[Rfam]
Fluoride riboswitch aptamer (crcB RNA motif): a 62-nucleotide RNA sequence from Rhizobium sp. BK275. On this family, see Baker et al., Science 2012: "Widespread genetic switches and toxicity resistance proteins for fluoride".
RNA sequence: UGCGCCGAUGGGGAUGGAGUACCCCCGAAACCGCCCUAGAGGCUGAUGACUCCUACCGUGUU
Numbered sequence: 001u002g003c004g005c006c007g008a009u010g011g012g013g014a015u016g017g018a019g020u021a022c023c024c025c026c027g028a029a030a031c032c033g034c035c036c037u038a039g040a041g042g043c044u045g046a047u048g049a050c051u052c053c054u055a056c057c058g059u060g061u062u
Base pairs, nucleotide, nucleotide: 010026011025012024013023016053017052018051019050020049033043034042035041
Dot-bracket structure: .........[[[[..(((((..]]]]......(((.....))).....))))).........
Its family is annotated with response to fluoride and positive regulation of gene expression in the Gene Ontology.